[Rfam]
RNA sequence: GGACAUAAACGCGCUCGUAAUAAGCGGAUCGGACCCGGGGGCGGUACCCGGCGACUCCACCAAAACUCCCUCGUUUGGGGACCAUGGGGUCGAAAUAGGAUCGACGGACGUCUAAAGGGGUUUGCUUUGUCUCGGUGAGUUACCACCGUUAUCGGUACACUUAAGCUAGUUGCAAACGACAACAAAGCUCCGGUCGCACUCGCAGCGUAA
Numbered sequence: 001g002g003a004c005a006u007a008a009a010c011g012c013g014c015u016c017g018u019a020a021u022a023a024g025c026g027g028a029u030c031g032g033a034c035c036c037g038g039g040g041g042c043g044g045u046a047c048c049c050g051g052c053g054a055c056u057c058c059a060c061c062a063a064a065a066c067u068c069c070c071u072c073g074u075u076u077g078g079g080g081a082c083c084a085u086g087g088g089g090u091c092g093a094a095a096u097a098g099g100a101u102c103g104a105c106g107g108a109c110g111u112c113u114a115a116a117g118g119g120g121u122u123u124g125c126u127u128u129g130u131c132u133c134g135g136u137g138a139g140u141u142a143c144c145a146c147c148g149u150u151a152u153c154g155g156u157a158c159a160c161u162u163a164a165g166c167u168a169g170u171u172g173c174a175a176a177c178g179a180c181a182a183c184a185a186a187g188c189u190c191c192g193g194u195c196g197c198a199c200u201c202g203c204a205g206c207g208u209a210a
Base pairs, nucleotide, nucleotide: 001132002131003130004129005128013121014120015119016118025110026109029107030106031105035051036050037049038048039047052092053091054090055089056088057087058086133148134147135146136145

The family of this 210-nucleotide RNA from Litoreibacter ponti is "permuted transfer-messenger RNA". The family's RNA type in Rfam is non-coding RNA gene. The family's consensus secondary structure is taken from published work. Rfam describes the family as follows. Bacterial tmRNA, also known as 10Sa RNA or SsrA, is named for its dual tRNA and mRNA-like properties. For this family Rfam cites "Phylogenetic analysis of tmRNA secondary structure" (Williams and Bartel, RNA, 1996). Lineage of the source: Bacteria > Pseudomonadati > Alphaproteobacteria > Roseobacteraceae > Litoreibacter.